[Rfam]
RNA sequence: CGAGUCGGCCGGGCAGUCGCGGGGAUCCACGGGAUCCUCGAGGAAAGUCCGGGCUCCACAGGGCAGGGUGCCAGGUAACGCCUGGGGGGCGCGAGCCUACGGAAAGUGCCACAGAAAACACACCGCCGAUGGCCCACGGGCACAGGUAAGGGUGAAAAGGUGCGGUAAGAGCGCACCGCGCGGGUGGCAACACGCCGCGGCAGGGUAAACCCCACCCGGAGCAAGACCAAAUAGGGAGGCCAGGAUGCGGCCCGCAUCGCCUCCGGGUAGGUCGCUUGAGACAGCCGGUGACGGCUGUUCCAGAGGAAUGACUGUCCCCGACAGAACCCGGCUUACAGGCCGGCUCGAUUU
Numbered sequence: 001c002g003a004g005u006c007g008g009c010c011g012g013g014c015a016g017u018c019g020c021g022g023g024g025a026u027c028c029a030c031g032g033g034a035u036c037c038u039c040g041a042g043g044a045a046a047g048u049c050c051g052g053g054c055u056c057c058a059c060a061g062g063g064c065a066g067g068g069u070g071c072c073a074g075g076u077a078a079c080g081c082c083u084g085g086g087g088g089g090c091g092c093g094a095g096c097c098u099a100c101g102g103a104a105a106g107u108g109c110c111a112c113a114g115a116a117a118a119c120a121c122a123c124c125g126c127c128g129a130u131g132g133c134c135c136a137c138g139g140g141c142a143c144a145g146g147u148a149a150g151g152g153u154g155a156a157a158a159g160g161u162g163c164g165g166u167a168a169g170a171g172c173g174c175a176c177c178g179c180g181c182g183g184g185u186g187g188c189a190a191c192a193c194g195c196c197g198c199g200g201c202a203g204g205g206u207a208a209a210c211c212c213c214a215c216c217c218g219g220a221g222c223a224a225g226a227c228c229a230a231a232u233a234g235g236g237a238g239g240c241c242a243g244g245a246u247g248c249g250g251c252c253c254g255c256a257u258c259g260c261c262u263c264c265g266g267g268u269a270g271g272u273c274g275c276u277u278g279a280g281a282c283a284g285c286c287g288g289u290g291a292c293g294g295c296u297g298u299u300c301c302a303g304a305g306g307a308a309u310g311a312c313u314g315u316c317c318c319c320g321a322c323a324g325a326a327c328c329c330g331g332c333u334u335a336c337a338g339g340c341c342g343g344c345u346c347g348a349u350u351u
Stems, first nucleotide, its partner, number of pairs: 001347010011336001012316007020040009045334003049331005054221004061253004066217005071085005086100001087098004101212002106210002108206003123151002125147003130142002133139001159177006178201001179199005184193003225273004235264006244258005280299008

This 351-nucleotide sequence from Thiohalobacter thiocyanaticus belongs to the Rfam family "Bacterial RNase P class A".
Rfam classes the family as a ribozyme.
The match comes from Rfam's covariance-model search (335 bits).